[Rfam]
RNA: Mammalian CPEB3 ribozyme
Organism: Alligator sinensis
RNA sequence: GGUCGCAAGCUUGAGGCUAUAACACAGGUGCUCACAGCACGGCCUUGUCAGACUUCAACAAAGCUGAGAAUUCUGCU
Numbered sequence: 001g002g003u004c005g006c007a008a009g010c011u012u013g014a015g016g017c018u019a020u021a022a023c024a025c026a027g028g029u030g031c032u033c034a035c036a037g038c039a040c041g042g043c044c045u046u047g048u049c050a051g052a053c054u055u056c057a058a059c060a061a062a063g064c065u066g067a068g069a070a071u072u073c074u075g076c077u
Stems, first nucleotide, its partner, number of pairs: 014045005021077001023075002026072002028040003049066003054061002